[Rfam]
RNA: 6S-Flavo RNA
Organism: Flavobacteriaceae bacterium MAR_2010_72
RNA sequence: ACUCAACGUUAAUUCUUUAAAAAGGGUGAGUUUAAGUUGUAAAACCGUGCUGCCUUUGAGCAGAUUUUUGAUCAGCUUGUUAGCCCUAAACUUGUUUUUAAGGAGUUU
Numbered sequence: 001a002c003u004c005a006a007c008g009u010u011a012a013u014u015c016u017u018u019a020a021a022a023a024g025g026g027u028g029a030g031u032u033u034a035a036g037u038u039g040u041a042a043a044a045c046c047g048u049g050c051u052g053c054c055u056u057u058g059a060g061c062a063g064a065u066u067u068u069u070g071a072u073c074a075g076c077u078u079g080u081u082a083g084c085c086c087u088a089a090a091c092u093u094g095u096u097u098u099u100a101a102g103g104a105g106u107u108u
Stems, first nucleotide, its partner, number of pairs: 023087005034078005043069002050063004